A member of the RNA family "Streptococcus sRNA SpF01" from Streptococcus himalayensis, 81 nucleotides long. It is annotated as a small RNA. The family's consensus secondary structure was predicted with mfold. The literature on the family includes a 2012 paper in PLoS Pathog by Mann et al., "Control of virulence by small RNAs in Streptococcus pneumoniae". Lineage of the source: Bacteria > Bacilli > Lactobacillales > Streptococcaceae > Streptococcus.

[Rfam]
RNA sequence: AUCAUCUUGGAGAUGAUGGGCUGUAAAGCCUUUAAAUUAAGCACUUUUGGGGCGUUAUUCCAAAGUGCUUUUUUAGUUUUU
Numbered sequence: 001a002u003c004a005u006c007u008u009g010g011a012g013a014u015g016a017u018g019g020g021c022u023g024u025a026a027a028g029c030c031u032u033u034a035a036a037u038u039a040a041g042c043a044c045u046u047u048u049g050g051g052g053c054g055u056u057a058u059u060c061c062a063a064a065g066u067g068c069u070u071u072u073u074u075a076g077u078u079u080u081u
Base pairs, nucleotide, nucleotide: 018081019080020079031076034073039070040069041068042067043066044065045064049061050060051059052058